[Rfam]
RNA sequence: UUGCGCGACCGGGCCCCUCUGGCGAUCUGUGCAGAUCGUGAUGUCGGUCGCAUCA
Numbered sequence: 001u002u003g004c005g006c007g008a009c010c011g012g013g014c015c016c017c018u019c020u021g022g023c024g025a026u027c028u029g030u031g032c033a034g035a036u037c038g039u040g041a042u043g044u045c046g047g048u049c050g051c052a053u054c055a
Stems, first nucleotide, its partner, number of pairs: 006050007022039007
Rfam assigns this 55-nucleotide sequence from Paracoccus contaminans to the family "terC RNA". By type it is a cis-regulatory element. The family's consensus secondary structure is taken from published work.